[Rfam]
RNA sequence: UGGCGUCAUGUUGGCACUCAAAAAGUUUCAAAUUCUAGAGCAUUUUGGAUUUUGGAUUUUUGGAUUAGGGAUGCUC
Numbered sequence: 001u002g003g004c005g006u007c008a009u010g011u012u013g014g015c016a017c018u019c020a021a022a023a024a025g026u027u028u029c030a031a032a033u034u035c036u037a038g039a040g041c042a043u044u045u046u047g048g049a050u051u052u053u054g055g056a057u058u059u060u061u062g063g064a065u066u067a068g069g070g071a072u073g074c075u076c
Stems, first nucleotide, its partner, number of pairs: 002075006011068004018063007027056006034049006
A member of the RNA family "mir-1290 microRNA precursor family" from Callithrix jacchus, 76 nucleotides long.
Rfam 15.1 lists 68 matches to the family in 28 species.
It scores 83 bits against the family's covariance model.
The family's consensus secondary structure was predicted with RNAalifold.
The source organism's lineage runs through Eukaryota, Bilateria, Euarchontoglires, Simiiformes and Callithrix.